[Rfam]
Background:
The record is a 504-nucleotide part of an RNA from Cryptosporidium parvum, which matches "Eukaryotic large subunit ribosomal RNA" in Rfam. Clan: LSU clan. On this family, see Yusupov et al., Science 2001: "Crystal structure of the ribosome at 5.5 A resolution". It is one of the family's seed sequences. NCBI's taxonomy places the organism under Eukaryota, Alveolata, Conoidasida, Cryptosporidiidae, Cryptosporidium parvum.
Nucleotides: 504
Stems, first nucleotide, its partner, number of pairs: 001444006011024001013022003028179006049126006060115001061113002067109003072104001074102003079099006086092001129163009186210004191205005215226003230407005236401001240397003249394001251393001254390003274368003278365010295352005301325003307319002326330001331346001335344002408434009445499001447496010463483002469478003
Number, partner (000 for none) and nucleotide at each position: 001444c002443c003442c004441u005440c006439c007000g008000a009000a010000g011024u012000u013022u014021c015020c016000c017000u018000c019000a020015g021014g022013a023000u024011a025000g026000c027000u028179g029178g030177a031176g032175u033174u034000u035000u036000u037000u038000u039000a040000u041000a042000a043000u044000u045000u046000a047000g048000u049126u050125u051124u052123g053122u054121c055000a056000g057000g058000u059000a060115g061113a062112g063000a064000u065000a066000a067109u068108g069107a070000u071000u072104a073000g074102a075101g076100g077000c078000a079099u080098c081097u082096g083095g084094g085000a086092c087000a088000u089000g090000u091000u092086g093000u094084c095083c096082u097081a098080g099079a100076c101075c102074u103000a104072u105000u106000c107069u108068c109067a110000a111000a112062c113061u114000u115060c116000g117000a118000a119000u120000a121054g122053g123052c124051a125050a126049g127000u128000a129163c130162u131161a132160a133159u134158a135157a136156u137155u138000a139000c140000u141000u142000a143000a144000u145000u146000a147000u148000u149000u150000u151000u152000u153000u154000g155137a156136a157135u158134u159133a160132u161131u162130a163129g164000a165000a166000u167000u168000a169000a170000u171000a172000u173000u174033a175032a176031c177030u178029c179028u180000u181000a182000g183000u184000g185000g186210g187209c188208c189207a190000u191205u192204u193203u194202u195201g196000g197000u198000a199000a200000g201195c202194a203193g204192a205191a206000c207189u208188g209187g210186c211000g212000a213000u214000g215226a216225g217224g218000g219000a220000u221000g222000c223000u224217c225216c226215u227000a228000a229000c230407g231406u232405u233404u234403a235000g236401u237000u238000a239000a240397g241396g242395u243000g244000c245000c246000u247000a248000a249394a250000u251393g252000u253000a254390u255389g256388c257000u258000c259000a260000u261000c262000a263000g264000a265000u266000a267000c268000c269000a270000u271000a272000a273000a274368a275367g276366g277000u278365g279364u280363u281362g282361g283360u284359u285358c286357a287356u288000u289000u290000a291000a292000a293000c294000a295352g296351c297350a298349g299348g300000a301325c302324g303323g304000u305000g306000g307319u308318c309000a310000u311000g312000g313000a314000a315000g316000u317000c318308g319307a320000a321000a322000u323303c324302c325301g326330c327000u328000a329000a330326g331346g332000a333000g334000u335344g336343u337000g338000u339000a340000a341000c342000a343336a344335c345000u346331c347000a348299c349298c350297u351296g352295c353000c354000g355000a356287a357286u358285g359284a360283a361282c362281c363280a364279g365278c366276c367275c368274u369000g370000a371000a372000a373000a374000u375000g376000g377000a378000u379000g380000g381000c382000g383000c384000u385000g386000a387000a388256g389255c390254a391000u392000a393251u394249u395242a396241c397240c398000g399000a400000u401236a402000c403234u404233a405232a406231a407230c408434c409433a410432u411431u412430a413429u414428u415427u416426u417000u418000a419000a420000u421000u422000a423000u424000a425000u426416a427415a428414a429413a430412u431411a432410a433409u434408g435000u436000g437000u438000a439006g440005g441004a442003g443002g444001g445499c446000g447496u448495a449494a450493a451492a452491g453490u454489u455488g456487u457000u458000u459000u460000g461000a462000a463483g464482u465000a466000u467000a468000a469478g470477a471476u472000g473000u474000a475000a476471a477470u478469c479000u480000a481000u482464a483463u484000g485000g486000a487456a488455c489454g490453g491452c492451u493450u494449u495448u496447a497000g498000u499445g500000c501000g502000g503000a504000u